[Rfam]
RNA sequence: CUACGGGGAUGAUUUCAAGACUUGAACUCUCUCUUUCUGAUGGAUUAGUGGAGAGAACAUAAAAAUUCUGAGUGGC
Numbered sequence: 001c002u003a004c005g006g007g008g009a010u011g012a013u014u015u016c017a018a019g020a021c022u023u024g025a026a027c028u029c030u031c032u033c034u035u036u037c038u039g040a041u042g043g044a045u046u047a048g049u050g051g052a053g054a055g056a057a058c059a060u061a062a063a064a065a066u067u068c069u070g071a072g073u074g075g076c
Base pairs, nucleotide, nucleotide: 001075002074003073004072